[Rfam]
Nucleotides: 087
Base pairs, nucleotide, nucleotide: 036065039062040061042057043056044055045054046053047052
Number, partner (000 for none) and nucleotide at each position: 001000u002000a003000a004000a005000c006000c007000u008000a009000a010000a011000c012000g013000a014000c015000c016000u017000a018000a019000g020000c021000c022000c023000u024000g025000c026000c027000u028000u029000c030000u031000c032000u033000u034000a035000a036065g037000u038000c039062c040061u041000u042057g043056c044055g045054g046053c047052u048000c049000c050000g051000a052047a053046g054045c055044c056043g057042c058000u059000c060000c061040a062039g063000u064000g065036u066000g067000a068000g069000u070000a071000a072000g073000u074000a075000u076000u077000a078000c079000a080000u081000u082000u083000a084000a085000a086000a087000c